RNA sequence: AUUGUUACCCUAACAUAAACACUAACUUUGGUAUAAAUGCAGUAAGUGCUUUUUGUUGGGGUAGUUUUU
Number, nucleotide and partner (000 for none) at each position: 001a000002u000003u000004g065005u064006u063007a062008c061009c060010c059011u058012a000013a056014c055015a054016u000017a052018a050019a000020c048021a047022c046023u045024a000025a043026c042027u041028u000029u000030g000031g000032u000033a000034u000035a000036a000037a000038u000039g000040c000041a027042g026043u025044a000045a023046g022047u021048g020049c000050u018051u000052u017053u000054u015055g014056u013057u000058g011059g010060g009061g008062u007063a006064g005065u004066u000067u000068u000069u000
miR-430 microRNA precursor family: a 69-nucleotide RNA from Labrus bergylta. Pairs were carried over by alignment from the consensus structure, which was predicted with RNAalifold.